The record is a 165-nucleotide RNA sequence from Clostridium cavendishii, which matches "M-box riboswitch aptamer (ykoK leader)" in Rfam. The base pairs follow the family's consensus structure. Gene Ontology terms of the family: response to magnesium ion and regulation of gene expression.

[Rfam]
RNA sequence: UAGAUUAUUUGUUAGGUGAGGUUACUGUAAAGAACACACGCCACUGCCCAGAAAUGUCCAGAGACGCCAAUGGGUUAGCAGGUAUUAUCGAAGUAAGGUAUUACUUAAUGUGGCUGGCAAUGUCCUAAGUCUUACAGAGCUAAAACUCAACGAGUGAAAGAAUUU
Numbered sequence: 001u002a003g004a005u006u007a008u009u010u011g012u013u014a015g016g017u018g019a020g021g022u023u024a025c026u027g028u029a030a031a032g033a034a035c036a037c038a039c040g041c042c043a044c045u046g047c048c049c050a051g052a053a054a055u056g057u058c059c060a061g062a063g064a065c066g067c068c069a070a071u072g073g074g075u076u077a078g079c080a081g082g083u084a085u086u087a088u089c090g091a092a093g094u095a096a097g098g099u100a101u102u103a104c105u106u107a108a109u110g111u112g113g114c115u116g117g118c119a120a121u122g123u124c125c126u127a128a129g130u131c132u133u134a135c136a137g138a139g140c141u142a143a144a145a146c147u148c149a150a151c152g153a154g155u156g157a158a159a160g161a162a163u164u165u
Base pairs, nucleotide, nucleotide: 005161006160008158009157010156011151012150013096015147016146017145020141021140022139025137026136027135028134029133030132032131033130040114041113042112043111044110046075047074048073049072050071055066056065057064058063081105082104083103084102087099088098089097116125117124

The source organism's lineage runs through Bacteria, Bacillota, Clostridia, Clostridium and Clostridium cavendishii. On this family, see Ramesh and Winkler, RNA Biol 2010: "Magnesium-sensing riboswitches in bacteria". From the family's description: M-box riboswitch, also know as ykoK leader is described as a metaloregulatory RNA that sense divalent metals and function as a genetic control element of genes related to divalent metal transport in bacteria.